[Rfam]
RNA sequence: GCUGUACGAUGAUGAUACUUUGGCUCCCUCUGCUGAUUCCUGUGAGGAAAGCAGCCAUCCGUUACCCAAAGCUUCUGACAGUACAGC
Numbered sequence: 001g002c003u004g005u006a007c008g009a010u011g012a013u014g015a016u017a018c019u020u021u022g023g024c025u026c027c028c029u030c031u032g033c034u035g036a037u038u039c040c041u042g043u044g045a046g047g048a049a050a051g052c053a054g055c056c057a058u059c060c061g062u063u064a065c066c067c068a069a070a071g072c073u074u075c076u077g078a079c080a081g082u083a084c085a086g087c
Base pairs, nucleotide, nucleotide: 001087002086003085004084005083006082
Small nucleolar RNA SNORD100: an 87-nucleotide RNA sequence from Thryothorus ludovicianus.
Pairs were carried over by alignment from the consensus structure, which was predicted with RNAalifold.
Its family is annotated with nucleolus and RNA processing in the Gene Ontology.